RNA sequence: CAGGUCGGACAGACAGUCGCCGCGUAUCGCGUAAGGCAUACGGGGAGGAAAGUCCGGGCUCCGCAGAGCAGGAUGCCGGCUAACGGCCGGGCGCGGAAACGCGACGGAAAGUGGAACAGAAAGCAAUACCGCCGACGGCCACCUUCGGGCGGCACGGGUAAGGGUGAAAAGGUGCGGUAAGAGCGCACCGUGCACUUGGUAACAAGGCGCAGCAGGCUAAACCCCAUCCGGAGCAAGACCAAACAGAACGCAUUGACGCUGCUCGCCGAGCGUUCGGGUAGGUUGCUGGAGUGCAUCAGUAAUGGUGUGCCUAGAGGAAUGACUGUCCGAGACAGAACCCGGCUUACCGUCCGGCCUGUAUG
Numbered sequence: 001c002a003g004g005u006c007g008g009a010c011a012g013a014c015a016g017u018c019g020c021c022g023c024g025u026a027u028c029g030c031g032u033a034a035g036g037c038a039u040a041c042g043g044g045g046a047g048g049a050a051a052g053u054c055c056g057g058g059c060u061c062c063g064c065a066g067a068g069c070a071g072g073a074u075g076c077c078g079g080c081u082a083a084c085g086g087c088c089g090g091g092c093g094c095g096g097a098a099a100c101g102c103g104a105c106g107g108a109a110a111g112u113g114g115a116a117c118a119g120a121a122a123g124c125a126a127u128a129c130c131g132c133c134g135a136c137g138g139c140c141a142c143c144u145u146c147g148g149g150c151g152g153c154a155c156g157g158g159u160a161a162g163g164g165u166g167a168a169a170a171g172g173u174g175c176g177g178u179a180a181g182a183g184c185g186c187a188c189c190g191u192g193c194a195c196u197u198g199g200u201a202a203c204a205a206g207g208c209g210c211a212g213c214a215g216g217c218u219a220a221a222c223c224c225c226a227u228c229c230g231g232a233g234c235a236a237g238a239c240c241a242a243a244c245a246g247a248a249c250g251c252a253u254u255g256a257c258g259c260u261g262c263u264c265g266c267c268g269a270g271c272g273u274u275c276g277g278g279u280a281g282g283u284u285g286c287u288g289g290a291g292u293g294c295a296u297c298a299g300u301a302a303u304g305g306u307g308u309g310c311c312u313a314g315a316g317g318a319a320u321g322a323c324u325g326u327c328c329g330a331g332a333c334a335g336a337a338c339c340c341g342g343c344u345u346a347c348c349g350u351c352c353g354g355c356c357u358g359u360a361u362g
Stems, first nucleotide, its partner, number of pairs: 001358010012327007020045002023042005050345003054342005059233004066264004071229005076090005091105001092103004106224002111222002113218002129163002131159003138153003142149002171189006190213001191211003195207001196205003237284004246275006258266002291310008
Overview: The family of this 362-nucleotide RNA from Morococcus cerebrosus is "Bacterial RNase P class A". About the family: Ribonuclease P (RNase P) is a ubiquitous endoribonuclease, found in archaea, bacteria and eukarya as well as chloroplasts and mitochondria. Rfam classes the family as a ribozyme. The family's consensus secondary structure is taken from published work.